The family of this 84-nucleotide RNA sequence from Synaphobranchus kaupii is "mir-221 microRNA precursor family". Lineage of the source: Eukaryota > Vertebrata > Teleostei > Elopocephalai > Synaphobranchus.

RNA sequence: UACGGCCUGAACCUGGCAUACAAUGUAGAUUUCUGUGUCGCUCGAGCUACAGCUACAUUGUCUGCUGGGUUUCAGGCUGACCGU
Dot-bracket structure: ............((((((.(((((((((....((((............))))))))))))).))))))................